Rfam assigns this 53-nucleotide RNA to the family "6A RNA". It is annotated as a small RNA.
RNA sequence: UGAUAUGUUCGUAGUGCAGCGAACAGUAUAAUCAAAAAAAAAUGCACUAUAUU
Numbered sequence: 001u002g003a004u005a006u007g008u009u010c011g012u013a014g015u016g017c018a019g020c021g022a023a024c025a026g027u028a029u030a031a032u033c034a035a036a037a038a039a040a041a042a043u044g045c046a047c048u049a050u051a052u053u
Stems, first nucleotide, its partner, number of pairs: 006025006014047004
Dot-bracket structure: .....((((((..[[[[..))))))..................]]]]......